[Rfam]
RNA sequence: UGCUGCCAUUUGAUAUGUGACACUUAGUCAUAUUUUGUAUCUGUGCGUCUUGAAAUAUCCCAUAUAAUAAAUGGGAAUGGACCUUGUGACACUAGCUGCUCCUCAUCAACUUCUAGUUACAACAUAUAGUCGUUUACAUGU
Numbered sequence: 001u002g003c004u005g006c007c008a009u010u011u012g013a014u015a016u017g018u019g020a021c022a023c024u025u026a027g028u029c030a031u032a033u034u035u036u037g038u039a040u041c042u043g044u045g046c047g048u049c050u051u052g053a054a055a056u057a058u059c060c061c062a063u064a065u066a067a068u069a070a071a072u073g074g075g076a077a078u079g080g081a082c083c084u085u086g087u088g089a090c091a092c093u094a095g096c097u098g099c100u101c102c103u104c105a106u107c108a109a110c111u112u113c114u115a116g117u118u119a120c121a122a123c124a125u126a127u128a129g130u131c132g133u134u135u136a137c138a139u140g141u
Stems, first nucleotide, its partner, number of pairs: 004062002008058002019049003023045001025043003076134005091117005098110001100108001

Shown here is a 141-nucleotide sequence from Aegilops tauschii, a member of the family "Small nucleolar RNA F1/F2/snoR5a".
The base pairs follow the family's consensus structure, which was predicted with PFOLD.
Rfam's curators write: This family contains F1, F2 and snoR5a sequences, all of which are members of the the H/ACA class of snoRNA that guide the sites of modification of uridines to pseudouridines.
The family has 8 seed sequences and 325 matches in Rfam 15.1.
Taxonomically the source falls in Aegilops tauschii (Eukaryota, Spermatophyta, Magnoliopsida, Liliopsida).